[Rfam]
RNA: opuB ncRNA motif
Organism: Enterobacteriaceae bacterium ATCC 29904
Nucleotides: 139
Base pairs, nucleotide, nucleotide: 013119014118019030020029021028034111038107039106040105059073060072061071062070063069082099083098084097085096086095087094
Number, partner (000 for none) and nucleotide at each position: 001000c002000a003000c004000u005000u006000u007000u008000u009000g010000u011000c012000a013119u014118u015000a016000a017000c018000u019030g020029g021028c022000a023000c024000g025000u026000u027000u028021g029020c030019c031000g032000g033000c034111u035000c036000g037000u038107u039106g040105c041000u042000a043000u044000a045000g046000c047000u048000g049000a050000a051000a052000a053000a054000g055000a056000c057000c058000c059073u060072g061071c062070c063069g064000g065000a066000a067000c068000a069063u070062g071061g072060c073059a074000u075000a076000a077000c078000a079000a080000c081000a082099g083098g084097c085096a086095a087094c088000c089000a090000a091000c092000a093000g094087g095086u096085u097084g098083c099082u100000a101000u102000a103000a104000c105040g106039c107038a108000u109000g110000c111034a112000c113000a114000a115000c116000a117000g118014g119013g120000a121000g122000a123000c124000a125000c126000a127000c128000c129000g130000c131000a132000a133000u134000g135000c136000a137000c138000g139000c